SAH (S-adenosyl-L-homocysteine) riboswitch aptamer: a 135-nucleotide sequence from Pseudomonas fluvialis.
The literature on the family includes a 2008 paper in Mol Cell by Wang et al., "Riboswitches that sense S-adenosylhomocysteine and activate genes involved in coenzyme recycling".
The organism belongs to Pseudomonas, within Bacteria.
The family's consensus secondary structure is taken from published work.
The match comes from Rfam's covariance-model search (59 bits).
The family has 52 seed sequences and 1,354 matches in Rfam 15.1.
[Rfam]
RNA sequence: CUGUCCGAGGGGCGCUGCAGCAGACGCCAGAGCUGUUUCGAAUCACCCGCCGCUCGGCAACAGAUUCGCCUCAGCCUCCCGUCUGUCAGGCUCGGUCAGGGCGUUACCCAUACGCAUCAACGGCGCCCAUUCGCA
Numbered sequence: 001c002u003g004u005c006c007g008a009g010g011g012g013c014g015c016u017g018c019a020g021c022a023g024a025c026g027c028c029a030g031a032g033c034u035g036u037u038u039c040g041a042a043u044c045a046c047c048c049g050c051c052g053c054u055c056g057g058c059a060a061c062a063g064a065u066u067c068g069c070c071u072c073a074g075c076c077u078c079c080c081g082u083c084u085g086u087c088a089g090g091c092u093c094g095g096u097c098a099g100g101g102c103g104u105u106a107c108c109c110a111u112a113c114g115c116a117u118c119a120a121c122g123g124c125g126c127c128c129a130u131u132c133g134c135a
Stems, first nucleotide, its partner, number of pairs: 002098002005095004021085006